[Rfam]
RNA sequence: UGAAAACUCCCAUUACAGUGGUAGUUCCCCAACCAGGAGCAACUUUACCAUACUCCGAGUUU
Numbered sequence: 001u002g003a004a005a006a007c008u009c010c011c012a013u014u015a016c017a018g019u020g021g022u023a024g025u026u027c028c029c030c031a032a033c034c035a036g037g038a039g040c041a042a043c044u045u046u047a048c049c050a051u052a053c054u055c056c057g058a059g060u061u062u
Stems, first nucleotide, its partner, number of pairs: 018046001020044003024040005

A member of the RNA family "Plastid-psbN 5UTR RNA" from [Phormidium ambiguum] IAM M-71, 62 nucleotides long. From the family's description: Plastid psbN is a non-coding RNA (ncRNA) recognised in plastids. It was reported as a conserved 11 stem-loop in the prime untranslated region (5UTR) of psbN genes. It has been reported that the motif is retained in a subset of mature transcripts in barley, which can suggests a possible role in transcript alternative 5 prime processing. The base pairs follow the family's consensus structure, which was predicted with LocARNA. On this family, see Richter et al., Plant Commun 2023: "Retrograde signaling in plants: A critical review focusing on the GUN pathway and beyond". NCBI's taxonomy places the organism under Bacteria, Bacillati, Cyanophyceae, Oscillatoriophycideae, Floridanema.